The record is a 75-nucleotide RNA sequence from Myotis myotis, which matches "mir-9229 microRNA precursor family" in Rfam. Pairs were carried over by alignment from the consensus structure, which was predicted with RNAalifold. The family has 7 seed sequences and 27,225 matches in Rfam 15.1. Its family is annotated with RISC complex and miRNA-mediated post-transcriptional gene silencing in the Gene Ontology.
RNA sequence: AGACACUUUUCUGGGGCAAGACUCGCUUCAGUGGGGCUUUGGUGCUCACUGACUCUGCCCCCUGAGUGUGUCCCU
Numbered sequence: 001a002g003a004c005a006c007u008u009u010u011c012u013g014g015g016g017c018a019a020g021a022c023u024c025g026c027u028u029c030a031g032u033g034g035g036g037c038u039u040u041g042g043u044g045c046u047c048a049c050u051g052a053c054u055c056u057g058c059c060c061c062c063u064g065a066g067u068g069u070g071u072c073c074c075u
Stems, first nucleotide, its partner, number of pairs: 002072005008066003013061006020055002028052008036043002